A member of the RNA family "Fluoride riboswitch aptamer (crcB RNA motif)" from Allolucifera butyrica, 62 nucleotides long.
Taxonomically the source falls in Allolucifera (Bacteria, Bacillati, Veillonellales, Veillonellaceae).
A search with the family's covariance model found it, with a score of 35 bits.
[Rfam]
RNA sequence: UGAGCUUGGGGCGAUGGAGUUCGCCUUAAAACGUCAUUGACGAUAAUGACUCCUGUAGGCGU
Numbered sequence: 001u002g003a004g005c006u007u008g009g010g011g012c013g014a015u016g017g018a019g020u021u022c023g024c025c026u027u028a029a030a031a032c033g034u035c036a037u038u039g040a041c042g043a044u045a046a047u048g049a050c051u052c053c054u055g056u057a058g059g060c061g062u
Base pairs, nucleotide, nucleotide: 010025011024012023013022016053017052018051019050020049021048